[Rfam]
RNA: TPP riboswitch aptamer (THI element)
RNA sequence: CGCGUCUUGACGGGGUGCUGGUACAACCAUCAGGAAGUACCGGCUGAGAUUGUGGGCGGGCCAUGGCUUUAUGUCGGGCCGGCUAUCCAGAACCCGCUGACCUGAACCGGAUAAUACCGGCGUAGGAAUUCGAGGCAAUACUUUCG
Numbered sequence: 001c002g003c004g005u006c007u008u009g010a011c012g013g014g015g016u017g018c019u020g021g022u023a024c025a026a027c028c029a030u031c032a033g034g035a036a037g038u039a040c041c042g043g044c045u046g047a048g049a050u051u052g053u054g055g056g057c058g059g060g061c062c063a064u065g066g067c068u069u070u071a072u073g074u075c076g077g078g079c080c081g082g083c084u085a086u087c088c089a090g091a092a093c094c095c096g097c098u099g100a101c102c103u104g105a106a107c108c109g110g111a112u113a114a115u116a117c118c119g120g121c122g123u124a125g126g127a128a129u130u131c132g133a134g135g136c137a138a139u140a141c142u143u144u145c146g
Stems, first nucleotide, its partner, number of pairs: 006134005011096004016090001017044008051089002101126004107120004